[Rfam]
RNA: c-di-GMP-I riboswitch aptamer
Organism: Pelosinus fermentans
RNA sequence: AUGAAUAAUUGGCAAACUUAUCGAAAGAUAAGGACGCAAAGCCGUGGGUCUAAAGAGCUAUUCUAUGACAGCCUGGUUGCAUAA
Dot-bracket structure: ...........((...((((((....))))))...))..((((..(((((....(((...)))...)))..)).))))......